Background
This 132-nucleotide RNA from Chengkuizengella marina belongs to the Rfam family "Ribosomal protein L20 leader". Its family is annotated with regulation of gene expression in the Gene Ontology. The literature on the family includes a 1994 paper in Prog Nucleic Acid Res Mol Biol by Zengel and Lindahl, "Diverse mechanisms for regulating ribosomal protein synthesis in Escherichia coli". NCBI's taxonomy places the organism under Bacteria, Bacillati, Bacilli, Paenibacillaceae, Chengkuizengella. It scores 78 bits against the family's covariance model.
RNA sequence: AUCAACAAGCAGAAGCGCCCGCUUCUCACCUGACUAACAUGCUGUUAGCUGGUUCAAAUGAUAAAUCUUAUCUCUUUGUGAGAUGAAAUAAAUGAUGUGGGCGAAUGAAUCUGCUCACAUUUUUUUUGUUUU
Numbered sequence: 001a002u003c004a005a006c007a008a009g010c011a012g013a014a015g016c017g018c019c020c021g022c023u024u025c026u027c028a029c030c031u032g033a034c035u036a037a038c039a040u041g042c043u044g045u046u047a048g049c050u051g052g053u054u055c056a057a058a059u060g061a062u063a064a065a066u067c068u069u070a071u072c073u074c075u076u077u078g079u080g081a082g083a084u085g086a087a088a089u090a091a092a093u094g095a096u097g098u099g100g101g102c103g104a105a106u107g108a109a110u111c112u113g114c115u116c117a118c119a120u121u122u123u124u125u126u127u128g129u130u131u132u
Stems, first nucleotide, its partner, number of pairs: 011026006028053003034048005096119008105110001